[Rfam]
Nucleotides: 085
Stems, first nucleotide, its partner, number of pairs: 002084005
Number, partner (000 for none) and nucleotide at each position: 001000u002084g003083u004082g005081c006080a007000a008000g009000u010000g011000a012000c013000g014000a015000u016000a017000a018000a019000u020000c021000a022000g023000a024000c025000a026000g027000g028000g029000a030000c031000a032000u033000c034000a035000g036000a037000a038000c039000u040000c041000u042000g043000c044000u045000u046000g047000a048000u049000u050000a051000u052000g053000a054000u055000g056000a057000g058000u059000u060000g061000u062000c063000u064000u065000u066000g067000g068000g069000a070000a071000u072000c073000u074000c075000u076000c077000u078000g079000a080006u081005g082004c083003a084002c085000a
This 85-nucleotide sequence from Tripterygium wilfordii belongs to the Rfam family "Small nucleolar RNA R44/J54/Z268 family". The match comes from Rfam's covariance-model search (80 bits).